[Rfam]
RNA sequence: UGCAGUUCUCAGGUGACGCACCCAGAACCAGAGAGGAGGGAGUCUGAUUCUGGGGUGUGUCACCUGAGAACCACC
Numbered sequence: 001u002g003c004a005g006u007u008c009u010c011a012g013g014u015g016a017c018g019c020a021c022c023c024a025g026a027a028c029c030a031g032a033g034a035g036g037a038g039g040g041a042g043u044c045u046g047a048u049u050c051u052g053g054g055g056u057g058u059g060u061c062a063c064c065u066g067a068g069a070a071c072c073a074c075c
Stems, first nucleotide, its partner, number of pairs: 002074001005071013019057005024051004029046004
RNA: mir-9223 microRNA precursor family